[Rfam]
RNA sequence: AGCCAUGCAGUGAGCACAUAGCGAACUAUUCUUUCGCCUUUUACUAAAGAAUACCGUGUGUUCAUUACAAUCAAUGGCAUACUCUAAUUUUUUGAGGGUGUUUGUUUUACUCCU
Numbered sequence: 001a002g003c004c005a006u007g008c009a010g011u012g013a014g015c016a017c018a019u020a021g022c023g024a025a026c027u028a029u030u031c032u033u034u035c036g037c038c039u040u041u042u043a044c045u046a047a048a049g050a051a052u053a054c055c056g057u058g059u060g061u062u063c064a065u066u067a068c069a070a071u072c073a074a075u076g077g078c079a080u081a082c083u084c085u086a087a088u089u090u091u092u093u094g095a096g097g098g099u100g101u102u103u104g105u106u107u108u109a110c111u112c113c114u
Stems, first nucleotide, its partner, number of pairs: 003077004009066010027053008096114003100110002
Description: A member of the RNA family "U5 spliceosomal RNA" from Ipomoea nil, 114 nucleotides long. The match comes from Rfam's covariance-model search (89 bits). For this family Rfam cites "The uRNA database" (Zwieb, Nucleic Acids Res, 1997).